Iron response element I: a 35-nucleotide RNA sequence from Papio anubis. The source organism's lineage runs through Eukaryota, Opisthokonta, Chordata, Craniata and Papio. Gene Ontology term of the family: response to iron ion. It is annotated as a cis-regulatory element.
RNA sequence: AGGUUUCCUGCUUCAACAGCGCUUGGACAGAACCU
Numbered sequence: 001a002g003g004u005u006u007c008c009u010g011c012u013u014c015a016a017c018a019g020c021g022c023u024u025g026g027a028c029a030g031a032a033c034c035u
Stems, first nucleotide, its partner, number of pairs: 001035005007030001010028001012027005017021001